[Rfam]
RNA sequence: AAAGCAGGUUGCAAUUACAGUGCUUCGGAUUGUGGAAGUACUGACAUUAUCCUGCUGAAAGAAAUGCUGUGUUCAUCAUCUUUGGUUUUGCCUUUAUGAGGGUAAAACCAUGACAGAUUAACACACACAAUU
Numbered sequence: 001a002a003a004g005c006a007g008g009u010u011g012c013a014a015u016u017a018c019a020g021u022g023c024u025u026c027g028g029a030u031u032g033u034g035g036a037a038g039u040a041c042u043g044a045c046a047u048u049a050u051c052c053u054g055c056u057g058a059a060a061g062a063a064a065u066g067c068u069g070u071g072u073u074c075a076u077c078a079u080c081u082u083u084g085g086u087u088u089u090g091c092c093u094u095u096a097u098g099a100g101g102g103u104a105a106a107a108c109c110a111u112g113a114c115a116g117a118u119u120a121a122c123a124c125a126c127a128c129a130a131u132u
Stems, first nucleotide, its partner, number of pairs: 003056006018043009068125006075118003083110012
Overview: Shown here is a 132-nucleotide RNA sequence from Trichechus manatus, a member of the family "Small nucleolar RNA SNORA69". The base pairs follow the family's consensus structure, which was predicted with PFOLD. Rfam's curators write: U69 is a member of the H/ACA class of small nucleolar RNAs (snoRNAs) which act as guides in the the modification of uridines to pseudouridines. A search with the family's covariance model found it, with a score of 144 bits. Gene Ontology terms of the family: RNA processing and nucleolus. Rfam 15.1 lists 808 matches to the family in 584 species. By type it is an H/ACA-box small nucleolar RNA.